[Rfam]
RNA sequence: UUUGAGAUGACAUACUUCCUUAUAUCCCCAUAUACGGUAAUAUCAAUCUAUGGAAUGUAAGGAAGUGUGUGGUCUCAAG
Number, nucleotide and partner (000 for none) at each position: 001u000002u000003u000004g000005a000006g000007a073008u072009g000010a070011c069012a068013u067014a066015c065016u064017u063018c062019c061020u060021u059022a058023u057024a056025u055026c000027c000028c053029c052030a051031u050032a049033u000034a000035c000036g000037g000038u000039a000040a000041u000042a000043u000044c000045a000046a000047u000048c000049u032050a031051u030052g029053g028054a000055a025056u024057g023058u022059a021060a020061g019062g018063a017064a016065g015066u014067g013068u012069g011070u010071g000072g008073u007074c000075u000076c000077a000078a000079g000

A member of the RNA family "mir-1 microRNA precursor family" from Cyprinus carpio, 79 nucleotides long. Rfam describes the family as follows. This family represents the microRNA (miRNA) mir-1 family. miRNAs are transcribed as ~70nt precursors (modelled here) and subsequently processed by the Dicer enzyme to give a ~22nt product. In this case the mature sequence comes from the 3' arm of the precursor. The extents of the hairpin precursors are not generally known and are estimated based on hairpin prediction. The products are thought to have regulatory roles through complementarity to mRNA. The involvement of Dicer in miRNA processing suggests a relationship with the phenomenon of RNA interference. miRNAs are numbered based on the sequence of the mature RNA. This family also contains the mir-206 from human, which appears to be related to mir-1. Rfam's curators put it in the seed alignment. Gene Ontology terms of the family: miRNA-mediated post-transcriptional gene silencing and RISC complex. The base pairs follow the family's consensus structure, which was predicted with RNAalifold.